[Rfam]
Shown here is a 70-nucleotide sequence from Synechococcus sp. WH 7805, a member of the family "Cyano-1 RNA".
RNA sequence: AUUUGUGUGAGGAGCUCAGCAGUUUCACAGAGUCGAAACAAGGAAAGACUUCUUUGAAUUGCUGACCCUG
Numbered sequence: 001a002u003u004u005g006u007g008u009g010a011g012g013a014g015c016u017c018a019g020c021a022g023u024u025u026c027a028c029a030g031a032g033u034c035g036a037a038a039c040a041a042g043g044a045a046a047g048a049c050u051u052c053u054u055u056g057a058a059u060u061g062c063u064g065a066c067c068c069u070g
Stems, first nucleotide, its partner, number of pairs: 016065005023058002029053003032049003

It is annotated as a small RNA. The source organism's lineage runs through Bacteria, Cyanobacteriota, Cyanophyceae, Synechococcales and Synechococcus.